[Rfam]
RNA sequence: CAGCCUAAGGCAAGUCCUACACAACCAGCUCCUGCUGAAUCCCCCAGGACGGGAACGUAGCAAGGGUACGCGGUCGUAGCGGUGUGAUGUAGAUCGCUUGCCUUUUU
Numbered sequence: 001c002a003g004c005c006u007a008a009g010g011c012a013a014g015u016c017c018u019a020c021a022c023a024a025c026c027a028g029c030u031c032c033u034g035c036u037g038a039a040u041c042c043c044c045c046a047g048g049a050c051g052g053g054a055a056c057g058u059a060g061c062a063a064g065g066g067u068a069c070g071c072g073g074u075c076g077u078a079g080c081g082g083u084g085u086g087a088u089g090u091a092g093a094u095c096g097c098u099u100g101c102c103u104u105u106u107u
Stems, first nucleotide, its partner, number of pairs: 008103008017092005022086002024083002
Dot-bracket structure: .......((((((((.(((((((((........................................................)).)).)))))...))))))))....
This 107-nucleotide RNA from Flavobacteriaceae bacterium Ap0902 belongs to the Rfam family "Bacteroidales small SRP". Gene Ontology terms of the family: signal recognition particle, plasma membrane targeting and SRP-dependent cotranslational protein targeting to membrane, signal sequence recognition. The match comes from Rfam's covariance-model search (102 bits). A reference for the family is Ryan et al. (2020), "A high-resolution transcriptome map identifies small RNA regulation of metabolism in the gut microbe Bacteroides thetaiotaomicron", Nat Commun.